[Rfam]
RNA: Bacterial small subunit ribosomal RNA, nucleotides 1 to 583
Nucleotides: 583
Stems, first nucleotide, its partner, number of pairs: 009025005027573004032569006039418006045411002047376001052374003056371003061103003066100002070095001074091007110329003119254008129246002134242007142176004151166006182205005189198003210234006255301003262292003267289008304326004308319004331352005354365004382408001384407003390403005421451004431442004455514001457509005465500001471494003517562005528557005538545002
Number, partner (000 for none) and nucleotide at each position: 001000u002000a003000a004000c005000g006000u007000g008000a009025g010024g011023g012022u013021u014000u015000g016000a017000u018000c019000c020000u021013g022012g023011c024010u025009c026000a027573g028572g029571g030570c031000g032569a033568a034567c035566g036565c037564u038000g039418g040417c041416g042415g043414c044413g045411c046410g047376c048000c049000u050000a051000a052374c053373a054372c055000a056371u057370g058369c059000a060000a061103g062102u063101c064000g065000a066100g067099g068000g069000g070095g071000a072000a073000a074091g075090g076089g077088u078087a079086g080085c081000u082000u083000c084000g085080g086079c087078u088077a089076c090075c091074c092000g093000a094000g095070u096000a097000c098000a099067c100066c101063g102062g103061c104000a105000g106000a107000c108000g109000g110329g111328u112327g113000a114000g115000u116000a117000a118000c119254g120253c121252g122251u123250g124249g125248g126247u127000a128000a129246c130245c131000u132000a133000c134242c135241u136240u137239g138238g139237g140236g141000u142176c143175u144174g145173g146000g147000a148000u149000a150000a151166c152165c153164a154163c155162c156161c157000g158000a159000a160000a161156g162155g163154g164153u165152g166151g167000c168000u169000a170000a171000u172000a173145c174144c175143g176142g177000a178000u179000a180000c181000g182205u183204u184203c185202c186201u187000g188000a189198g190197g191196c192000g193000c194000g195000a196191g197190c198189c199000g200000a201186g202185g203184g204183a205182a206000g207000a208000a209000a210234g211233g212232g213231u214230g215229c216000c217000a218000c219000u220000g221000c222000a223000u224000a225000g226000c227000a228000a229215g230214c231213a232212c233211c234210u235000g236140c237139c238138c239137u240136a241135a242134g243000a244000g245130g246129g247126g248125u249124c250123c251122g252121c253120g254119u255301c256300c257299c258000a259000u260000c261000a262292g263291c264290u265000a266000g267289u268288u269287g270286g271285u272284g273283a274282g275000g276000u277000a278000a279000c280000g281000g282274c283273u284272c285271a286270c287269c288268a289267a290264g291263g292262c293000a294000a295000c296000g297000a298000c299257g300256g301255g302000u303000a304326g305325c306324c307323g308319g309318c310317c311316u312000g313000a314000g315000a316311g317310g318309g319308u320000g321000g322000u323307c324306g325305g326304c327112c328111a329110c330000a331352c332351u333350g334349g335348c336000a337000c338000u339000g340000a341000g342000a343000c344000a345000c346000g347000g348335g349334c350333c351332a352331g353000a354365c355364u356363c357362c358000u359000a360000c361000g362357g363356g364355a365354g366000g367000c368000a369058g370057c371056a372054g373053u374052g375000g376047g377000g378000a379000a380000u381000c382408u383000u384407g385406g386405g387000c388000a389000a390403u391402g392401g393400c394399c395000g396000a397000a398000a399394g400393g401392c402391u403390g404000a405386c406385c407384c408382a409000g410046c411045g412000a413044c414043g415042c416041c417040g418039c419000g420000u421451g422450g423449g424448g425000g426000a427000a428000g429000a430000a431442g432441g433440c434439c435000u436000u437000c438000g439434g440433g441432u442431c443000g444000u445000a446000a447000a448424c449423c450422c451421c452000u453000g454000u455514c456000a457509a458508g459507g460506a461505g462000g463000a464000a465500g466000a467000a468000g469000c470000c471494c472493u473492u474000a475000c476000u477000g478000g479000u480000u481000a482000a483000g484000a485000g486000c487000u488000g489000g490000u491000a492473g493472g494471g495000g496000u497000u498000g499000a500465c501000g502000g503000u504000a505461c506460u507459c508458c509457u510000g511000g512000a513000g514455g515000a516000a517562g518561c519560c520559a521558c522000g523000g524000c525000u526000a527000a528557c529556u530555c531554c532553g533000u534000g535000c536000c537000a538545g539544c540000a541000g542000c543000c544539g545538c546000g547000g548000u549000a550000a551000u552000a553532c554531g555530g556529a557528g558521g559520u560519g561518g562517c563000g564037a565036g566035c567034g568033u569032u570030g571029c572028c573027c574000g575000g576000a577000a578000u579000c580000a581000c582000u583000g